[Rfam]
RNA sequence: GGAAGUUAAGAAACUGUUUCUUAAUUUUUAACUAAAAAUGGUAAGAACCGGUUCUUAAAUAAGAACGCUAAGAACGGGUUCUUAGCCUUUUUAGUUAAAAGUUAAGAAACAGUUUCUUAACUUCC
Numbered sequence: 001g002g003a004a005g006u007u008a009a010g011a012a013a014c015u016g017u018u019u020c021u022u023a024a025u026u027u028u029u030a031a032c033u034a035a036a037a038a039u040g041g042u043a044a045g046a047a048c049c050g051g052u053u054c055u056u057a058a059a060u061a062a063g064a065a066c067g068c069u070a071a072g073a074a075c076g077g078g079u080u081c082u083u084a085g086c087c088u089u090u091u092u093a094g095u096u097a098a099a100a101g102u103u104a105a106g107a108a109a110c111a112g113u114u115u116c117u118u119a120a121c122u123u124c125c
Stems, first nucleotide, its partner, number of pairs: 001125038042084006